[Rfam]
RNA sequence: UCCGCUGCAAGGCGGAAUCUGGAGGAAGCCGAUGGCAAAGCGAUGGUCAGACGAACAGGUACCGCCUAGUAGGCAACCAAGCUGGGUAAGGAGGCAUGUGUCUCUAAAGCUCAAUACCUGCUCGGAAAGCUUAGCAGCAAGAUUGUUCAGACCGUCAGCGGAGUUACGGAA
Dot-bracket structure: ((((((....)))))).......................(.(((.((..(...........(.(.((.....(((.(.(((((((((..((((........))))...))))...............))))).).........)))..)).).))..))...))).)....
Numbered sequence: 001u002c003c004g005c006u007g008c009a010a011g012g013c014g015g016a017a018u019c020u021g022g023a024g025g026a027a028g029c030c031g032a033u034g035g036c037a038a039a040g041c042g043a044u045g046g047u048c049a050g051a052c053g054a055a056c057a058g059g060u061a062c063c064g065c066c067u068a069g070u071a072g073g074c075a076a077c078c079a080a081g082c083u084g085g086g087u088a089a090g091g092a093g094g095c096a097u098g099u100g101u102c103u104c105u106a107a108a109g110c111u112c113a114a115u116a117c118c119u120g121c122u123c124g125g126a127a128a129g130c131u132u133a134g135c136a137g138c139a140a141g142a143u144u145g146u147u148c149a150g151a152c153c154g155u156c157a158g159c160g161g162a163g164u165u166a167c168g169g170a171a
Stems, first nucleotide, its partner, number of pairs: 001016006040167001042165003046159002050155001062154001064152001066150002073146003077134001079132005084112004090105004